RNA: Luteovirus cap-independent translation element (BTE)
RNA sequence: GCAAUAUAGUGGGAGCCGGGUCCUGGUAAACAGGUUGAGUUGGUCUCGUAAUCUCGGGUGGACUGCCAAUCCACCGUCGCACCACUCUCAUGGGCU
Dot-bracket structure: ....(...(((((((..((..((((.....))))..(((.....))).....(...((((((.......))))))...)..)).))))))).)...